[Rfam]
RNA sequence: AGACCCUUCCUCUUUCGGGAAGUGAGGCCGAACGGACAGCCGGGUCAAUAGCCGA
Numbered sequence: 001a002g003a004c005c006c007u008u009c010c011u012c013u014u015u016c017g018g019g020a021a022g023u024g025a026g027g028c029c030g031a032a033c034g035g036a037c038a039g040c041c042g043g044g045u046c047a048a049u050a051g052c053c054g055a
Base pairs, nucleotide, nucleotide: 002046003045004044005043006022007021008020009019010018011017
RNA: Streptococcus sRNA SpF59 (ldcC RNA)